[Rfam]
RNA sequence: CACCCUCUGCGGUGUACGCCAGGGAGCCGGGUAUUUUCUUGAGCCUAAUUGAUACCCCGGGAGCAUGAUGUGGAGCCGGUGCGCAUAUCCGCCCCGAGCGGGGAGCCUGAAGCGACACGGUUGUUCCCACUUGAACCAACCGGUUCAAGAACGAUGGUGAGCAGCGGCACGGGUGGAGGG
Number, nucleotide and partner (000 for none) at each position: 001c000002a000003c180004c179005c178006u177007c176008u175009g174010c173011g000012g170013u169014g168015u167016a000017c166018g165019c164020c000021a000022g000023g000024g000025a000026g000027c000028c000029g000030g000031g000032u000033a000034u000035u000036u151037u150038c149039u000040u147041g146042a145043g144044c143045c142046u000047a000048a000049u000050u000051g000052a000053u000054a000055c000056c000057c000058c000059g128060g127061g126062a000063g124064c123065a122066u000067g000068a000069u000070g118071u117072g116073g000074a000075g000076c000077c112078g000079g000080u000081g000082c000083g106084c105085a000086u000087a000088u102089c101090c100091g099092c098093c000094c000095c000096g000097a000098g092099c091100g090101g089102g088103g000104a000105g084106c083107c000108u000109g000110a000111a000112g077113c000114g000115a000116c072117a071118c070119g000120g000121u000122u065123g064124u063125u000126c061127c060128c059129a000130c000131u000132u000133g000134a000135a000136c000137c000138a000139a000140c000141c000142g045143g044144u043145u042146c041147a040148a000149g038150a037151a036152c000153g000154a000155u000156g000157g000158u000159g000160a000161g000162c000163a000164g019165c018166g017167g015168c014169a013170c012171g000172g000173g010174u009175g008176g007177a006178g005179g004180g003
A member of the RNA family "6S / SsrS RNA" from Candidatus Sedimenticola endophacoides, 180 nucleotides long. A search with the family's covariance model found it, with a score of 76 bits. Lineage of the source: Bacteria > Pseudomonadati > Pseudomonadota > Gammaproteobacteria > Sedimenticola. By type it is a non-coding RNA gene. Pairs were carried over by alignment from the consensus structure, which is taken from published work.